RNA sequence: AUUAAUACGCUGAGAGGGACAGUAAGUUUCUUCAACAUUCAUGAAGCGAGCCAGGGACGGUGAAAGCCUGGUAUGAAGGAAGAAAACCGAAGAUCACCCUUGAGUACCGAAUUGAACCUGUAAGGCAGUAGAUGAGGCGCAUCAUUCACGUUACGAAUGCUUAAGAGGACAAUUUAUUUUGUCUAUUAGGGUGGUACCGCGGGAAAUUAUAAAGCCUUCUCGUCCCUUUU
Numbered sequence: 001a002u003u004a005a006u007a008c009g010c011u012g013a014g015a016g017g018g019a020c021a022g023u024a025a026g027u028u029u030c031u032u033c034a035a036c037a038u039u040c041a042u043g044a045a046g047c048g049a050g051c052c053a054g055g056g057a058c059g060g061u062g063a064a065a066g067c068c069u070g071g072u073a074u075g076a077a078g079g080a081a082g083a084a085a086a087c088c089g090a091a092g093a094u095c096a097c098c099c100u101u102g103a104g105u106a107c108c109g110a111a112u113u114g115a116a117c118c119u120g121u122a123a124g125g126c127a128g129u130a131g132a133u134g135a136g137g138c139g140c141a142u143c144a145u146u147c148a149c150g151u152u153a154c155g156a157a158u159g160c161u162u163a164a165g166a167g168g169a170c171a172a173u174u175u176a177u178u179u180u181g182u183c184u185a186u187u188a189g190g191g192u193g194g195u196a197c198c199g200c201g202g203g204a205a206a207u208u209a210u211a212a213a214g215c216c217u218u219c220u221c222g223u224c225c226c227u228u229u230u
Stems, first nucleotide, its partner, number of pairs: 007105002015100004026087004039076003050072006107137002111133003138150002168183005188227004199223007
The record is a 230-nucleotide sequence from Peribacillus deserti, which matches "T-box leader" in Rfam. It is annotated as a cis-regulatory leader. Gene Ontology term of the family: tRNA binding. On this family, see Gerdeman et al., J Mol Biol 2003: "Solution structure of the Bacillus subtilis T-box antiterminator RNA: seven nucleotide bulge characterized by stacking and flexibility". The source organism's lineage runs through Bacteria, Bacillota, Bacilli, Bacillaceae and Peribacillus.